The family of this 83-nucleotide RNA from Egretta garzetta is "Small nucleolar RNA SNORD72".
[Rfam]
RNA sequence: CACUUGUUAAUAAGACGUUUCUUACUAAAAGUGUCUGAUCAUAUGAACUCCAUGGUGAUUUCAGUGCAUUGCUGAGAUAAGCU
Numbered sequence: 001c002a003c004u005u006g007u008u009a010a011u012a013a014g015a016c017g018u019u020u021c022u023u024a025c026u027a028a029a030a031g032u033g034u035c036u037g038a039u040c041a042u043a044u045g046a047a048c049u050c051c052a053u054g055g056u057g058a059u060u061u062c063a064g065u066g067c068a069u070u071g072c073u074g075a076g077a078u079a080a081g082c083u
Stems, first nucleotide, its partner, number of pairs: 003081006
Dot-bracket structure: ..((((((...................................................................))))))..
The literature on the family includes a 2001 paper in EMBO J by Huttenhofer et al., "RNomics: an experimental approach that identifies 201 candidates for novel, small, non-messenger RNAs in mouse". The source organism's lineage runs through Eukaryota, Opisthokonta, Sauria, Saurischia and Egretta. Gene Ontology terms of the family: RNA processing and nucleolus. snoRNA HBII-240 belongs to the CD family of snoRNAs. It is the human orthologue of the mouse MBII-240 and is predicted to guide 2'O-ribose methylation of the large 28S rRNA at residue U4590.